L31-Firmicutes ribosomal protein leader: a 32-nucleotide sequence. It is annotated as a cis-regulatory leader. A reference for the family is Eckert and Weinberg (2020), "Discovery of 20 novel ribosomal leader candidates in bacteria and archaea", BMC Microbiol.
[Rfam]
RNA sequence: CUAUGUUUAAAAAUUAAACAUGGCGAAAGGAG
Numbered sequence: 001c002u003a004u005g006u007u008u009a010a011a012a013a014u015u016a017a018a019c020a021u022g023g024c025g026a027a028a029g030g031a032g
Base pairs, nucleotide, nucleotide: 001023002022003021004020005019006018007017008016009015010014
Clan: Ribosomal Protein L31 Leader clan.